[Rfam]
RNA sequence: GAAUAAACGUAUAGCAACGCUCGUAUAAUAGUGGGGAUUGGCCCACGAGUCUCUACCGGAUCGCCGUAACGAUCCGACUACGGGUGGUGAGUUACUGCUC
Numbered sequence: 001g002a003a004u005a006a007a008c009g010u011a012u013a014g015c016a017a018c019g020c021u022c023g024u025a026u027a028a029u030a031g032u033g034g035g036g037a038u039u040g041g042c043c044c045a046c047g048a049g050u051c052u053c054u055a056c057c058g059g060a061u062c063g064c065c066g067u068a069a070c071g072a073u074c075c076g077a078c079u080a081c082g083g084g085u086g087g088u089g090a091g092u093u094a095c096u097g098c099u100c
Stems, first nucleotide, its partner, number of pairs: 018086008029048001031046005057076007
The family of this 100-nucleotide RNA sequence from Exiguobacterium artemiae is "Purine riboswitch aptamer". The family has 133 seed sequences and 4,097 matches in Rfam 15.1. The source organism's lineage runs through Bacteria, Bacillota, Bacilli, Caryophanales and Exiguobacterium artemiae.